[Rfam]
RNA sequence: CGCGCGCACGCGCCGAAUCCCGCAAGGGAACCGGGGAACCACACAUUGGGGUGAAUCGGGAAUUUUCGCUGCCUUGCGCGGACAGCGGAACCCCGUAGGAGACCUUCCUGCUCCGAACCCGUCAGCUAACCCGGUAGGCGAGAAGGAAGGAAAGG
Numbered sequence: 001c002g003c004g005c006g007c008a009c010g011c012g013c014c015g016a017a018u019c020c021c022g023c024a025a026g027g028g029a030a031c032c033g034g035g036g037a038a039c040c041a042c043a044c045a046u047u048g049g050g051g052u053g054a055a056u057c058g059g060g061a062a063u064u065u066u067c068g069c070u071g072c073c074u075u076g077c078g079c080g081g082a083c084a085g086c087g088g089a090a091c092c093c094c095g096u097a098g099g100a101g102a103c104c105u106u107c108c109u110g111c112u113c114c115g116a117a118c119c120c121g122u123c124a125g126c127u128a129a130c131c132c133g134g135u136a137g138g139c140g141a142g143a144a145g146g147a148a149g150g151a152a153a154g155g
Stems, first nucleotide, its partner, number of pairs: 011140004018029003030135006040048002049120003057095004098114004
This 155-nucleotide sequence from Streptomyces paludis belongs to the Rfam family "c-di-AMP riboswitch aptamer (ydaO/yuaA leader)".
Rfam's curators write: This family represents a conserved RNA structure found upstream of the ydaO and yuaA genes in Bacillus subtilis and related genes in other bacteria.